[Rfam]
Source information
A member of the RNA family "mraW RNA" from Mycobacterium leprae, 107 nucleotides long. The family has 45 seed sequences and 851 matches in Rfam 15.1. Rfam classes the family as a cis-regulatory element. The organism belongs to Mycobacterium leprae, within Bacteria.

RNA sequence: AAAUAUCCCCGCAUCGUGGUCUCUGUCCGAAGGCACGACCCUGGCGUUGGGGAAGUACGCCAGGGUCGUGCCUUCGGACAGAGACCACGAUGCGGGAGCAUGCGCCU
Numbered sequence: 001a002a003a004u005a006u007c008c009c010c011g012c013a014u015c016g017u018g019g020u021c022u023c024u025g026u027c028c029g030a031a032g033g034c035a036c037g038a039c040c041c042u043g044g045c046g047u048u049g050g051g052g053a054a055g056u057a058c059g060c061c062a063g064g065g066u067c068g069u070g071c072c073u074u075c076g077g078a079c080a081g082a083g084a085c086c087a088c089g090a091u092g093c094g095g096g097a098g099c100a101u102g103c104g105c106c107u
Stems, first nucleotide, its partner, number of pairs: 010094007018086002021083027